[Rfam]
RNA sequence: GGUGGCUCACACCAAUGCUUCGGACAGCGGUUCGAUUCCGCUCAGCUCCAUGCCUCCCGCUCCCGUGGCGGGACCUUCCCGGGGCUGCAAUGGUUUCGACGGGGUAUCAGGAGGGUGACUGAAGCCUGCUCGGUAAGAGCACACACGUAACAGCGAACAACAUCGUUCGUUUCUCCCGUCAGACCGCCCCUGUGGCCGCCUGA
Numbered sequence: 001g002g003u004g005g006c007u008c009a010c011a012c013c014a015a016u017g018c019u020u021c022g023g024a025c026a027g028c029g030g031u032u033c034g035a036u037u038c039c040g041c042u043c044a045g046c047u048c049c050a051u052g053c054c055u056c057c058c059g060c061u062c063c064c065g066u067g068g069c070g071g072g073a074c075c076u077u078c079c080c081g082g083g084g085c086u087g088c089a090a091u092g093g094u095u096u097c098g099a100c101g102g103g104g105u106a107u108c109a110g111g112a113g114g115g116u117g118a119c120u121g122a123a124g125c126c127u128g129c130u131c132g133g134u135a136a137g138a139g140c141a142c143a144c145a146c147g148u149a150a151c152a153g154c155g156a157a158c159a160a161c162a163u164c165g166u167u168c169g170u171u172u173c174u175c176c177c178g179u180c181a182g183a184c185c186g187c188c189c190c191u192g193u194g195g196c197c198g199c200c201u202g203a
Stems, first nucleotide, its partner, number of pairs: 001120003005116001016106003020102003026042005043087007
permuted transfer-messenger RNA: a 203-nucleotide RNA from Cyanobium sp. Morenito 9A2. Taxonomically the source falls in Cyanobium (Bacteria, Cyanobacteriota, Cyanophyceae, Prochlorococcaceae). The family's consensus secondary structure is taken from published work. On this family, see Williams and Bartel, RNA 1996: "Phylogenetic analysis of tmRNA secondary structure".